[Rfam]
RNA sequence: GCUGGGCGUGGUAGCGCGAGCCUGUAAUCCAGCUACUCCAGAGGAUGAGGCUGGUGGAUCGCUUGAGCUCAGGAUUUCUGGGCUGCAGCGGACUAAGCCGAUUGGGUGUCUGCACUAAGGUCAGCAUCAAUAUGGUGAUCCCCGGGGAGCCAAGGUUCAUCAGGUUGCCUAAGGAGGGGUGAACCAGCCCAGGUUGGAGAUGGAGCAGGUCAAAACUCCCGUGCCAAUUAGUAGUGGUAUAGCACCUGUGAAUAGCCGCUGCACCGUAGCCUGAGAAAGAGAGUGAGACCCAGACUCUU
Number, nucleotide and partner (000 for none) at each position: 001g000002c044003u043004g023005g022006g021007c020008g000009u018010g017011g000012u000013a000014g000015c000016g000017c010018g009019a000020g007021c006022c005023u004024g000025u000026a000027a000028u042029c041030c000031a000032g000033c000034u000035a000036c000037u000038c000039c000040a000041g029042a028043g003044g002045a000046u000047g297048a296049g295050g000051c293052u292053g291054g290055u000056g000057g000058a000059u286060c285061g284062c283063u282064u281065g000066a000067g000068c275069u274070c273071a272072g271073g270074a000075u000076u000077u000078c269079u268080g267081g000082g265083c000084u263085g262086c261087a260088g259089c258090g257091g000092a000093c255094u254095a253096a000097g000098c250099c000100g000101a000102u000103u248104g247105g246106g245107u244108g243109u242110c000111u237112g000113c236114a235115c234116u233117a232118a000119g229120g228121u227122c000123a000124g224125c223126a222127u221128c167129a166130a165131u164132a000133u162134g161135g160136u159137g158138a157139u000140c155141c154142c000143c000144g151145g150146g000147g000148a000149g000150c145151c144152a000153a000154g141155g140156u000157u138158c137159a136160u135161c134162a133163g000164g131165u130166u129167g128168c174169c173170u000171a000172a000173g169174g168175a000176g219177g218178g217179g216180u215181g000182a000183a000184c000185c000186a000187g210188c209189c208190c000191a000192g000193g000194u203195u202196g201197g000198a000199g000200a000201u196202g195203g194204a000205g000206c000207a000208g189209g188210u187211c000212a000213a000214a000215a180216c179217u178218c177219c176220c000221g127222u126223g125224c124225c000226a000227a121228u120229u119230a000231g000232u117233a116234g115235u114236g113237g111238u000239a000240u000241a000242g109243c108244a107245c106246c105247u104248g103249u000250g098251a000252a000253u095254a094255g093256c000257c090258g089259c088260u087261g086262c085263a084264c000265c082266g000267u080268a079269g078270c073271c072272u071273g070274a069275g068276a000277a000278a000279g000280a000281g064282a063283g062284u061285g060286a059287g000288a000289c000290c054291c053292a052293g051294a000295c049296u048297c047298u000299u000